RNA sequence: AGAGUUCUUCGGGGCAGGGUGAAGCCGCAAGGCAAUUCCCGACCGACGGUGAUACCACGUAGAUGGGUAAGUCCGUGAGCGAUAAGCAUGAGCCGGUGAGAAUCCGGAACCGACAGUACAGUCUGGAUGUGAGAAGAAAGCA
Dot-bracket structure: ....((((((......(((..................))).[[((((((.....................[[))))................((((.......)))).]])).(((....]]))).......))))))....
The family of this 142-nucleotide RNA from Eubacterium oxidoreducens is "FMN riboswitch aptamer (RFN element)". The source organism's lineage runs through Bacteria, Bacillota, Clostridia, Eubacteriales and Eubacterium.